[Rfam]
RNA sequence: GGCUUGUUCAAGUUCAAUGGUGUUUACAACUAAUUGAUCACAACCAUUUACAUGUGGCUUUUGUUCCUUCUCCACUCCCACUGCUUCACUUGACUAGCCUUAA
Numbered sequence: 001g002g003c004u005u006g007u008u009c010a011a012g013u014u015c016a017a018u019g020g021u022g023u024u025u026a027c028a029a030c031u032a033a034u035u036g037a038u039c040a041c042a043a044c045c046a047u048u049u050a051c052a053u054g055u056g057g058c059u060u061u062u063g064u065u066c067c068u069u070c071u072c073c074a075c076u077c078c079c080a081c082u083g084c085u086u087c088a089c090u091u092g093a094c095u096a097g098c099c100u101u102a103a
Stems, first nucleotide, its partner, number of pairs: 001099004006094003010091002016082001018080003022077001028065003032061002

A member of the RNA family "Y RNA" from Propithecus coquereli, 103 nucleotides long. A search with the family's covariance model found it, with a score of 56 bits. A reference for the family is Dhahbi et al. (2013), "5'-YRNA fragments derived by processing of transcripts from specific YRNA genes and pseudogenes are abundant in human serum and plasma", Physiol Genomics. Taxonomically the source falls in Propithecus (Eukaryota, Opisthokonta, Boreoeutheria, Primates). About the family: Y RNAs are components of the Ro ribonucleoprotein particle (Ro RNP), in association with Ro60 and La proteins.